[Rfam]
RNA sequence: GAUUUAUAAAGAAGUGGCGAGAGACAGGCUCACUGACCCACUGGCAACCCUACCUAACGGAAGAAGGUGCCAAUUCCUGACCAGAUAACGGGUGUUAUCAUGGAAAGAUAAAUU
Numbered sequence: 001g002a003u004u005u006a007u008a009a010a011g012a013a014g015u016g017g018c019g020a021g022a023g024a025c026a027g028g029c030u031c032a033c034u035g036a037c038c039c040a041c042u043g044g045c046a047a048c049c050c051u052a053c054c055u056a057a058c059g060g061a062a063g064a065a066g067g068u069g070c071c072a073a074u075u076c077c078u079g080a081c082c083a084g085a086u087a088a089c090g091g092g093u094g095u096u097a098u099c100a101u102g103g104a105a106a107g108a109u110a111a112a113u114u
Base pairs, nucleotide, nucleotide: 001114002113003112004111005110006109007108013042014041015040016039017038021031022030023029025079026078027077028076043071044070045069046068048067049066050063051062053060075106081103082102083101